[Rfam]
RNA sequence: CCGGUUGUUCCAUCAACCGUUCCCUACCUGGACAUGCGGAGCCGGCAACAGCACCGUGUGAAGCUCCGGGGACAAAGUAGCCGCCGGGCCACCGGUACACCGAACCGCGAGGGGAGGUGAAAUCUGCCUAGCACGAAGGCGUUGAGGCG
Numbered sequence: 001c002c003g004g005u006u007g008u009u010c011c012a013u014c015a016a017c018c019g020u021u022c023c024c025u026a027c028c029u030g031g032a033c034a035u036g037c038g039g040a041g042c043c044g045g046c047a048a049c050a051g052c053a054c055c056g057u058g059u060g061a062a063g064c065u066c067c068g069g070g071g072a073c074a075a076a077g078u079a080g081c082c083g084c085c086g087g088g089c090c091a092c093c094g095g096u097a098c099a100c101c102g103a104a105c106c107g108c109g110a111g112g113g114g115a116g117g118u119g120a121a122a123u124c125u126g127c128c129u130a131g132c133a134c135g136a137a138g139g140c141g142u143u144g145a146g147g148c149g
Stems, first nucleotide, its partner, number of pairs: 002019006028069005033060007041052002044049001083096005098119004105112002124141001126140004